RNA sequence: CUUCACCGACCCCAGCCACAGCGGAUCACCGUCGCGGUUCCGGCCGUAGGUGGCCAGCAGUGCCUGCGCCUC
Numbered sequence: 001c002u003u004c005a006c007c008g009a010c011c012c013c014a015g016c017c018a019c020a021g022c023g024g025a026u027c028a029c030c031g032u033c034g035c036g037g038u039u040c041c042g043g044c045c046g047u048a049g050g051u052g053g054c055c056a057g058c059a060g061u062g063c064c065u066g067c068g069c070c071u072c
Stems, first nucleotide, its partner, number of pairs: 014026001016024002033066001035062002040057001042055001044053003